The record is a 120-nucleotide sequence from Nocardioides mesophilus, which matches "Glycine riboswitch aptamer" in Rfam.
[Rfam]
RNA sequence: UGACACCGCGCGGGAGAGUCUCCGCCGGGCGCCGGUCCCCGUGAUCGGCGCACCGUCGCGGAGCGCCGAAGGGGCAAUUCCUCCCCGGAACCUCUCAGGCGCCCGGACCGGGCGGAACAG
Numbered sequence: 001u002g003a004c005a006c007c008g009c010g011c012g013g014g015a016g017a018g019u020c021u022c023c024g025c026c027g028g029g030c031g032c033c034g035g036u037c038c039c040c041g042u043g044a045u046c047g048g049c050g051c052a053c054c055g056u057c058g059c060g061g062a063g064c065g066c067c068g069a070a071g072g073g074g075c076a077a078u079u080c081c082u083c084c085c086c087g088g089a090a091c092c093u094c095u096c097a098g099g100c101g102c103c104c105g106g107a108c109c110g111g112g113c114g115g116a117a118c119a120g
Base pairs, nucleotide, nucleotide: 006115007114008113009112011110012109013108020063021062022061023060024059025058065100066099067098068096069095072094073093074092078088079087
Its family is annotated with glycine biosynthetic process in the Gene Ontology.